[Rfam]
RNA sequence: AACCCGCCUUUCGCUUUACCAGUUGGACUCCUCUGUCUUUCUUGGUUAUUCCGGGGGAGCAAAGGAAAUACCCUUUUAAAACUCAGGCACACUGGGUGUUUGUCUUGUAACCUGUCAGAGGAAACAAAC
Numbered sequence: 001a002a003c004c005c006g007c008c009u010u011u012c013g014c015u016u017u018a019c020c021a022g023u024u025g026g027a028c029u030c031c032u033c034u035g036u037c038u039u040u041c042u043u044g045g046u047u048a049u050u051c052c053g054g055g056g057g058a059g060c061a062a063a064g065g066a067a068a069u070a071c072c073c074u075u076u077u078a079a080a081a082c083u084c085a086g087g088c089a090c091a092c093u094g095g096g097u098g099u100u101u102g103u104c105u106u107g108u109a110a111c112c113u114g115u116c117a118g119a120g121g122a123a124a125c126a127a128a129c
Base pairs, nucleotide, nucleotide: 034061035060036059038057042053044051045050072121073120074119075118076117084107085105086104087103088102089101091099092098